[Rfam]
RNA: Bag-1 internal ribosome entry site (IRES)
Organism: Odocoileus virginianus
RNA sequence: GACAAAAGUUCGAAGCGCGGGUCUGGCGGACCGCGGGGGCGCGCGAAGACCACGAGGCGACCGGGAGCGGCUGGGUCCCCGGCGGCGUGCCCCUAGACCGGGCCAAGAGCCCAGUCGGUGCACCCAGCCGAGCGCGGUCCGCCUCCCUCCCAGAAAUCAGCCGUCCGGAGCGUGACCAGAGGGCAUGCCGGAUCCACCAGAGGCGCCGCCGCCUGCGCUGGCAGGCCGCGGGUGAAAAAGAAAGCACGGCCUCACUCGGCCCGGAGCGAAGAGGUGACCCGGAGCGAAGAGGUGGCCCGGAGCGAAGAAAUGGCGGCAGCCGGGCUCAGCGUGACCGUCACCCACAGCAAUGAGAAG
Numbered sequence: 001g002a003c004a005a006a007a008g009u010u011c012g013a014a015g016c017g018c019g020g021g022u023c024u025g026g027c028g029g030a031c032c033g034c035g036g037g038g039g040c041g042c043g044c045g046a047a048g049a050c051c052a053c054g055a056g057g058c059g060a061c062c063g064g065g066a067g068c069g070g071c072u073g074g075g076u077c078c079c080c081g082g083c084g085g086c087g088u089g090c091c092c093c094u095a096g097a098c099c100g101g102g103c104c105a106a107g108a109g110c111c112c113a114g115u116c117g118g119u120g121c122a123c124c125c126a127g128c129c130g131a132g133c134g135c136g137g138u139c140c141g142c143c144u145c146c147c148u149c150c151c152a153g154a155a156a157u158c159a160g161c162c163g164u165c166c167g168g169a170g171c172g173u174g175a176c177c178a179g180a181g182g183g184c185a186u187g188c189c190g191g192a193u194c195c196a197c198c199a200g201a202g203g204c205g206c207c208g209c210c211g212c213c214u215g216c217g218c219u220g221g222c223a224g225g226c227c228g229c230g231g232g233u234g235a236a237a238a239a240g241a242a243a244g245c246a247c248g249g250c251c252u253c254a255c256u257c258g259g260c261c262c263g264g265a266g267c268g269a270a271g272a273g274g275u276g277a278c279c280c281g282g283a284g285c286g287a288a289g290a291g292g293u294g295g296c297c298c299g300g301a302g303c304g305a306a307g308a309a310a311u312g313g314c315g316g317c318a319g320c321c322g323g324g325c326u327c328a329g330c331g332u333g334a335c336c337g338u339c340a341c342c343c344a345c346a347g348c349a350a351u352g353a354g355a356a357g
Stems, first nucleotide, its partner, number of pairs: 020104007037094003041090002043053001045051001061082005067076002141338002146333001163184004202219005208213001253268001255266003